RNA sequence: CCUGGGGCUUGCGCCUCAGGCUACGUGCUGCCGCCGCUGCGCGGCU
Numbered sequence: 001c002c003u004g005g006g007g008c009u010u011g012c013g014c015c016u017c018a019g020g021c022u023a024c025g026u027g028c029u030g031c032c033g034c035c036g037c038u039g040c041g042c043g044g045c046u
Base pairs, nucleotide, nucleotide: 001020002019003018004017005016006015007014008013033045034044035043036042037041
Overview
The record is a 46-nucleotide sequence from Kolteria novifilia, which matches "Acido-Lenti-1 RNA" in Rfam. Rfam 15.1 lists 2,607 matches to the family in 171 species. It is annotated as a small RNA.